[Rfam]
Nucleotides: 805
Base pairs, nucleotide, nucleotide: 001805002804003803004802006800007799008798009797010796011256012255013254014253015252016251019062020061021060022059023058024057025056026054027053029051030050032048033047034046035045063250064249065248066247067246068245069244070243071242080096081095082094083093084092085091098238099237100236101235103233104232105231106230107229108228110125111124112123113122114121142226143225144224145223146222147221148180149179150178151177152176153175154174155172156171157170160167192219193218194217195216196215199210200209202207257795258794259793260792261791263788264787266785267784268783269782270781286758287757288756289755290705291704292703293702294701295700314327315326316325317324330697331696332695333694337681338680339679340678342413343412344411345410346409347408348407349406351399353397354396355395357393358392361390362389365387366386368384369383370382371381372380418676419675420674421673422672423671424670425669428666429665430664432660433659435657436656437655438654439653440652441450442449491650492649493648494647519616520615521614522613523612524611525610526609527608528607529606531601532600534598539595540594541593542592543591544590545589550581551580552579553578554577555576565570617634618633620631621630622629686693687692714752715751716750717749718748719747720746721745722744723743724742725741726738727737728736760775761774762773763772764771
Number, partner (000 for none) and nucleotide at each position: 001805a002804g003803c004802a005000c006800c007799u008798c009797c010796u011256g012255u013254u014253a015252u016251a017000u018000g019062u020061a021060a022059u023058g024057a025056c026054u027053u028000g029051c030050g031000a032048a033047g034046u035045u036000c037000a038000u039000c040000u041000a042000a043000u044000u045035a046034a047033u048032u049000a050030u051029g052000g053027g054026a055000c056025g057024u058023c059022a060021u061020u062019g063250g064249c065248a066247u067246u068245u069244u070243u071242u072000a073000u074000u075000c076000a077000a078000c079000g080096a081095a082094g083093a084092g085091u086000u087000a088000a089000c090000c091085a092084c093083u094082c095081u096080u097000a098238a099237u100236a101235a102000u103233a104232a105231u106230g107229g108228g109000u110125u111124u112123u113122a114121u115000a116000g117000c118000a119000a120000a121114a122113u123112a124111g125110a126000c127000u128000u129000u130000u131000u132000u133000a134000u135000c136000g137000a138000g139000u140000g141000u142226u143225c144224a145223a146222u147221a148180u149179u150178u151177g152176c153175g154174u155172c156171c157170g158000u159000u160167a161000u162000u163000a164000u165000u166000u167160u168000u169000c170157u171156g172155g173000a174154a175153u176152g177151u178150a179149a180148a181000u182000u183000c184000u185000c186000u187000c188000u189000c190000a191000a192219c193218a194217c195216a196215g197000g198000u199210g200209a201000a202207a203000u204000u205000u206000a207202u208000g209200u210199u211000u212000g213000a214000a215196u216195u217194g218193u219192g220000g221147u222146g223145u224144u225143g226142a227000u228108u229107c230106u231105a232104u233103u234000c235101u236100u237099a238098u239000a240000a241000c242071a243070a244069g245068a246067a247066a248065u249064g250063u251016u252015g253014u254013a255012a256011c257795u258794g259793a260792u261791a262000g263788a264787c265000a266785u267784a268783u269782u270781a271000a272000a273000a274000g275000a276000u277000u278000g279000a280000a281000u282000c283000g284000g285000a286758g287757c288756g289755g290705g291704a292703a293702u294701a295700a296000a297000g298000c299000a300000u301000g302000c303000u304000g305000a306000a307000c308000a309000u310000c311000a312000u313000g314327g315326u316325g317324a318000a319000u320000a321000g322000g323000a324317u325316u326315a327314c328000g329000g330697u331696g332695c333694c334000a335000g336000c337681g338680a339679u340678g341000g342413c343412a344411u345410g346409u347408a348407a349406c350000g351399g352000c353397a354396u355395u356000u357393c358392g359000u360000c361390u362389g363000g364000a365387g366386c367000g368384u369383c370382a371381c372380g373000u374000g375000a376000g377000g378000a379000c380372u381371g382370u383369g384368a385000a386366g387365c388000a389362c390361a391000a392358u393357g394000c395355g396354a397353u398000a399351u400000g401000u402000u403000c404000u405000g406349g407348u408347u409346a410345u411344a412343u413342g414000g415000c416000g417000a418676g419675u420674u421673u422672g423671c424670u425669u426000a427000a428666u429665g430664a431000c432660a433659u434000u435657u436656u437655u438654u439653u440652a441450g442449c443000c444000g445000a446000u447000c448000a449442g450441c451000g452000u453000c454000a455000g456000g457000c458000u459000u460000c461000u462000u463000a464000a465000u466000g467000u468000g469000g470000u471000u472000g473000u474000g475000a476000u477000u478000a479000u480000u481000u482000u483000u484000c485000u486000u487000u488000a489000a490000a491650u492649a493648u494647c495000a496000a497000a498000a499000g500000u501000u502000u503000g504000u505000a506000u507000g508000a509000c510000g511000u512000g513000u514000u515000u516000g517000u518000u519616g520615u521614u522613u523612u524611a525610u526609a527608g528607u529606g530000g531601c532600u533000a534598a535000a536000c537000a538000c539595u540594u541593u542592a543591u544590g545589g546000u547000u548000u549000c550581u551580g552579u553578u554577a555576a556000a557000u558000a559000u560000a561000u562000a563000u564000g565570c566000g567000u568000g569000a570565g571000a572000a573000a574000a575000a576555u577554u578553a579552g580551c581550a582000u583000u584000c585000a586000a587000a588000u589545c590544u591543a592542u593541a594540a595539a596000a597000g598534u599000g600532a601531g602000a603000u604000g605000a606529c607528a608527u609526u610525g611524u612523a613522g614521a615520a616519c617634c618633g619000g620631u621630u622629a623000c624000c625000u626000u627000a628000a629622u630621g631620a632000g633618c634617g635000a636000u637000a638000g639000a640000g641000c642000g643000c644000u645000u646000c647494g648493g649492u650491a651000g652440u653439a654438a655437a656436a657435a658000u659433a660432u661000c662000u663000u664430u665429c666428a667000g668000g669425a670424a671423g672422u673421a674420a675419a676418c677000g678340c679339a680338u681337c682000a683000g684000g685000a686693g687692c688000g689000a690000u691000a692687g693686c694333g695332g696331u697330g698000a699000a700295u701294u702293a703292u704291u705290c706000g707000u708000g709000g710000u711000u712000u713000g714752u715751c716750g717749a718748u719747u720746c721745g722744g723743c724742a725741u726738a727737g728736u729000g730000g731000c732000g733000a734000u735000a736728a737727c738726u739000g740000a741725a742724u743723g744722c745721c746720g747719g748718a749717u750716c751715g752714g753000u754000a755289c756288u757287g758286c759000a760775g761774g762773u763772g764771u765000u766000u767000a768000a769000a770000c771764a772763c773762a774761c775760c776000g777000u778000a779000a780000a781270u782269a783268a784267u785266a786000a787264g788263u789000a790000g791261u792260a793259u794258u795257a796010a797009g798008g799007a800006g801000u802004u803003g804002u805001u